[Rfam]
RNA sequence: UAUGCGGACCGGAAUGCCGCCCGGAAACAGAGACACCGGGAGGAAAGUCCGGGCCCGGUUACGGGGUACCGGUUAAUUGCCGGGAGGCGGUCCCACCGUCUACAGAAAGUGCAACAGAAAGAUACCGCCCUCCGACCGGUAACGGCCGGGGGGUAAGGGUGAAAUGGUGAGGUAAGAGCUCACCGCUUCCGCCGAGAGGCUGAAGGCACGGUAAACCUUGCCCCGGGCAAAACCAAGCAGCAGAUCAACUGUAUGGAUAUCCCAUACAGUCUGCGGGUAGGUUGCUGGAAGCUCAAUAGAGCUCAAGACAGAUGGCAUUCGUAAACAGAACCCGGCUUACCGGUCCGCAUCUUUU
Numbered sequence: 001u002a003u004g005c006g007g008a009c010c011g012g013a014a015u016g017c018c019g020c021c022c023g024g025a026a027a028c029a030g031a032g033a034c035a036c037c038g039g040g041a042g043g044a045a046a047g048u049c050c051g052g053g054c055c056c057g058g059u060u061a062c063g064g065g066g067u068a069c070c071g072g073u074u075a076a077u078u079g080c081c082g083g084g085a086g087g088c089g090g091u092c093c094c095a096c097c098g099u100c101u102a103c104a105g106a107a108a109g110u111g112c113a114a115c116a117g118a119a120a121g122a123u124a125c126c127g128c129c130c131u132c133c134g135a136c137c138g139g140u141a142a143c144g145g146c147c148g149g150g151g152g153g154u155a156a157g158g159g160u161g162a163a164a165u166g167g168u169g170a171g172g173u174a175a176g177a178g179c180u181c182a183c184c185g186c187u188u189c190c191g192c193c194g195a196g197a198g199g200c201u202g203a204a205g206g207c208a209c210g211g212u213a214a215a216c217c218u219u220g221c222c223c224c225g226g227g228c229a230a231a232a233c234c235a236a237g238c239a240g241c242a243g244a245u246c247a248a249c250u251g252u253a254u255g256g257a258u259a260u261c262c263c264a265u266a267c268a269g270u271c272u273g274c275g276g277g278u279a280g281g282u283u284g285c286u287g288g289a290a291g292c293u294c295a296a297u298a299g300a301g302c303u304c305a306a307g308a309c310a311g312a313u314g315g316c317a318u319u320c321g322u323a324a325a326c327a328g329a330a331c332c333c334g335g336c337u338u339a340c341c342g343g344u345c346c347g348c349a350u351c352u353u354u355u
Stems, first nucleotide, its partner, number of pairs: 002350009011340001012320007020040005028032001045338003049335005054227004064223005069083005084103001085101007104218002109216002111212002125158002127154008166184006185207001186205004191200003231283004240274006252266005290303005
RNA: Bacterial RNase P class A
Organism: Salinispira pacifica